Group II catalytic intron D1-D4-3: a 174-nucleotide sequence from Alkaliphilus peptidifermentans. The match comes from Rfam's covariance-model search (155 bits). The pairing is the family consensus, mapped onto this sequence. Taxonomically the source falls in Alkaliphilus peptidifermentans (Bacteria, Bacillati, Bacillota, Clostridia).
RNA sequence: UCCACCGUGAGGUGGAAUCUGAAGGAAGCCGACGGCAAACUUCUGGUCUGACGAAUAGAAACUACAUAUAAGGCACACAUAUGCUGGGUAAGGUUGCCACACAAACCAAAGCCCUAAACUAUCCGGAAGCAUAAGGUGUAGAUGUAGCAGAUAGAUGGAAGGAAAGAUUGCGUU
Numbered sequence: 001u002c003c004a005c006c007g008u009g010a011g012g013u014g015g016a017a018u019c020u021g022a023a024g025g026a027a028g029c030c031g032a033c034g035g036c037a038a039a040c041u042u043c044u045g046g047u048c049u050g051a052c053g054a055a056u057a058g059a060a061a062c063u064a065c066a067u068a069u070a071a072g073g074c075a076c077a078c079a080u081a082u083g084c085u086g087g088g089u090a091a092g093g094u095u096g097c098c099a100c101a102c103a104a105a106c107c108a109a110a111g112c113c114c115u116a117a118a119c120u121a122u123c124c125g126g127a128a129g130c131a132u133a134a135g136g137u138g139u140a141g142a143u144g145u146a147g148c149a150g151a152u153a154g155a156u157g158g159a160a161g162g163a164a165a166g167a168u169u170g171c172g173u174u
Stems, first nucleotide, its partner, number of pairs: 001016006028174001030172002036166001040161006046152005062147006073139003078135001080133005086114004092107004